[Rfam]
RNA sequence: CAGUUAAAAAGCUCGUAGUUGGAUUUCUGUUUUGGAUGUCCGGUCCGCUCCCUCUGGGAGUGUGUACUUAUGGAUAUUCGAGGCAUUUUUUGUGAGGCUGCCUUUCUGCCAUUAAGUUGGUGGGUUGGUGGGCUUGCAUCGUUUACUGUGAAAAAAUUAGAGUGUUUAAAGCAGGCGUUUGCUCAUUUGAAUACAUUAGCAUGGAAUAAUAAGAUACGGCCUUGGUGGUCUAUUUUGUUGGUUUGCACACCAGGGUAAUGAUUUAUAGGGACAGUUGGGGGUAUUCAUAUUUCAGCGUCAGAGGUGAAAUUCUUGGAUCGCUGAAAGAUGAGCUUAGGCGAAAGCAUUUACCAAGGAUGUUUUCAUUAAUCAAGAACGAAAGUUAGGGGAUCGAAGAUGAUUAGAUACCAUCGUAGUCUUAACCAUAAACUAUGCCGACUCGGGAUUGGCAGUCGUUUACUUUAAAUGACCUUGUCAGCACCGUAUGAGAAAUCAAAGUCUUUGGGUUCCGGGGGGAGUAUGGUCGCAAGGCUGAAACUUAAAGGAAU
Numbered sequence: 001c002a003g004u005u006a007a008a009a010a011g012c013u014c015g016u017a018g019u020u021g022g023a024u025u026u027c028u029g030u031u032u033u034g035g036a037u038g039u040c041c042g043g044u045c046c047g048c049u050c051c052c053u054c055u056g057g058g059a060g061u062g063u064g065u066a067c068u069u070a071u072g073g074a075u076a077u078u079c080g081a082g083g084c085a086u087u088u089u090u091u092g093u094g095a096g097g098c099u100g101c102c103u104u105u106c107u108g109c110c111a112u113u114a115a116g117u118u119g120g121u122g123g124g125u126u127g128g129u130g131g132g133c134u135u136g137c138a139u140c141g142u143u144u145a146c147u148g149u150g151a152a153a154a155a156a157u158u159a160g161a162g163u164g165u166u167u168a169a170a171g172c173a174g175g176c177g178u179u180u181g182c183u184c185a186u187u188u189g190a191a192u193a194c195a196u197u198a199g200c201a202u203g204g205a206a207u208a209a210u211a212a213g214a215u216a217c218g219g220c221c222u223u224g225g226u227g228g229u230c231u232a233u234u235u236u237g238u239u240g241g242u243u244u245g246c247a248c249a250c251c252a253g254g255g256u257a258a259u260g261a262u263u264u265a266u267a268g269g270g271a272c273a274g275u276u277g278g279g280g281g282u283a284u285u286c287a288u289a290u291u292u293c294a295g296c297g298u299c300a301g302a303g304g305u306g307a308a309a310u311u312c313u314u315g316g317a318u319c320g321c322u323g324a325a326a327g328a329u330g331a332g333c334u335u336a337g338g339c340g341a342a343a344g345c346a347u348u349u350a351c352c353a354a355g356g357a358u359g360u361u362u363u364c365a366u367u368a369a370u371c372a373a374g375a376a377c378g379a380a381a382g383u384u385a386g387g388g389g390a391u392c393g394a395a396g397a398u399g400a401u402u403a404g405a406u407a408c409c410a411u412c413g414u415a416g417u418c419u420u421a422a423c424c425a426u427a428a429a430c431u432a433u434g435c436c437g438a439c440u441c442g443g444g445a446u447u448g449g450c451a452g453u454c455g456u457u458u459a460c461u462u463u464a465a466a467u468g469a470c471c472u473u474g475u476c477a478g479c480a481c482c483g484u485a486u487g488a489g490a491a492a493u494c495a496a497a498g499u500c501u502u503u504g505g506g507u508u509c510c511g512g513g514g515g516g517a518g519u520a521u522g523g524u525c526g527c528a529a530g531g532c533u534g535a536a537a538c539u540u541a542a543a544g545g546a547a548u
Stems, first nucleotide, its partner, number of pairs: 001511001003509001011377001013375002018370003268364003271360003275356002280352004286330002290326008301312003335346001338345002382423006392416001396412004434507003437500003441483003446478007487494002513540003522533004

Shown here is a 548-nucleotide part of an RNA from Phytophthora infestans, a member of the family "Microsporidia small subunit ribosomal RNA". On this family, see Yusupov et al., Science 2001: "Crystal structure of the ribosome at 5.5 A resolution".